[Rfam]
RNA: ZMP/ZTP riboswitch aptamer (pfl RNA motif)
RNA sequence: GGCCGCGGUCGUGACUGGCGUCAGAGGUGGAGCACCACCUGGGAGCGGCCGAAGGAUCGAAUCUGUAGCGCACCGAUCGCCUGGGUGCCGCGG
Numbered sequence: 001g002g003c004c005g006c007g008g009u010c011g012u013g014a015c016u017g018g019c020g021u022c023a024g025a026g027g028u029g030g031a032g033c034a035c036c037a038c039c040u041g042g043g044a045g046c047g048g049c050c051g052a053a054g055g056a057u058c059g060a061a062u063c064u065g066u067a068g069c070g071c072a073c074c075g076a077u078c079g080c081c082u083g084g085g086u087g088c089c090g091c092g093g
Base pairs, nucleotide, nucleotide: 003054006051007050008049009048010047011046012045015042016041017081018080019079020078027038028037029036030035070088071087072086073085074084